SAM riboswitch aptamer (S box leader): a 107-nucleotide sequence from Listeria booriae. The source organism's lineage runs through Bacteria, Bacillati, Bacilli, Caryophanales and Listeria. It scores 96 bits against the family's covariance model. The SAM riboswitch is found upstream of a number of genes which code for proteins involved in methionine or cysteine biosynthesis in Gram-positive bacteria.
RNA sequence: CUCUUAUUGUGAGUGGUAGAGGGACUGGCCCUGUGAAACCCGGCAACCUUUCAAUUUUUUGAAAAGGUGCUAAAUCCUGCAAAGUGUGAUGCUUUGAAAGAUAAGAG
Numbered sequence: 001c002u003c004u005u006a007u008u009g010u011g012a013g014u015g016g017u018a019g020a021g022g023g024a025c026u027g028g029c030c031c032u033g034u035g036a037a038a039c040c041c042g043g044c045a046a047c048c049u050u051u052c053a054a055u056u057u058u059u060u061g062a063a064a065a066g067g068u069g070c071u072a073a074a075u076c077c078u079g080c081a082a083a084g085u086g087u088g089a090u091g092c093u094u095u096g097a098a099a100g101a102u103a104a105g106a107g
Stems, first nucleotide, its partner, number of pairs: 001107008013041001015040003021031003025079001027077002042071004047067002049063003075099001080096006